[Rfam]
RNA sequence: AACUUAUCAAGAGCGGCGGAGGGAACUGCCCGAUGAAGCCCGACAACCUGCGGUUUUGCAAGGUGUCAAGUCAGCGAAAAUUCGUUUUCGGCAGAUGAGUG
Numbered sequence: 001a002a003c004u005u006a007u008c009a010a011g012a013g014c015g016g017c018g019g020a021g022g023g024a025a026c027u028g029c030c031c032g033a034u035g036a037a038g039c040c041c042g043a044c045a046a047c048c049u050g051c052g053g054u055u056u057u058g059c060a061a062g063g064u065g066u067c068a069a070g071u072c073a074g075c076g077a078a079a080a081u082u083c084g085u086u087u088u089c090g091g092c093a094g095a096u097g098a099g100u101g
Stems, first nucleotide, its partner, number of pairs: 002100007013041001015040003021031003028072001042067004047063002049060004071093001075090006
The record is a 101-nucleotide RNA from Ruminococcus sp. CAG:382, which matches "SAM riboswitch aptamer (S box leader)" in Rfam.
The source organism's lineage runs through Bacteria, Bacillati, Clostridia, Oscillospiraceae and Ruminococcus.
The base pairs follow the family's consensus structure, which is taken from published work.